[Rfam]
RNA sequence: AAAGCCCCUUUCACUUUGCCAGUGGGACUUAAUGUCUUCAUUGGUCAUUCAAGUGGGGCAAAGGAAAUAUCCUUUUAAAACUCUGGCAAACUAGUGUUUGUCCUGUAACCUGUCAGAGGGAACAGUC
Numbered sequence: 001a002a003a004g005c006c007c008c009u010u011u012c013a014c015u016u017u018g019c020c021a022g023u024g025g026g027a028c029u030u031a032a033u034g035u036c037u038u039c040a041u042u043g044g045u046c047a048u049u050c051a052a053g054u055g056g057g058g059c060a061a062a063g064g065a066a067a068u069a070u071c072c073u074u075u076u077a078a079a080a081c082u083c084u085g086g087c088a089a090a091c092u093a094g095u096g097u098u099u100g101u102c103c104u105g106u107a108a109c110c111u112g113u114c115a116g117a118g119g120g121a122a123c124a125g126u127c
Stems, first nucleotide, its partner, number of pairs: 033060005041052004070120006083105001085102007